The record is a 72-nucleotide RNA from Alligator sinensis, which matches "Mammalian CPEB3 ribozyme" in Rfam.
It scores 35 bits against the family's covariance model.
NCBI's taxonomy places the organism under Eukaryota, Deuterostomia, Vertebrata, Sauropsida, Alligator.
RNA sequence: UAAGUUUAAGGUCACAGGAAAAGUGCGCAUGGCAUGGCCUUGUCUGAUUCAAACAAAUCCGUGAAUUCUGCU
Numbered sequence: 001u002a003a004g005u006u007u008a009a010g011g012u013c014a015c016a017g018g019a020a021a022a023g024u025g026c027g028c029a030u031g032g033c034a035u036g037g038c039c040u041u042g043u044c045u046g047a048u049u050c051a052a053a054c055a056a057a058u059c060c061g062u063g064a065a066u067u068c069u070g071c072u
Base pairs, nucleotide, nucleotide: 009040010039011038012037013036016072017071019069021067022066023035024034025033044061046059047058048057049056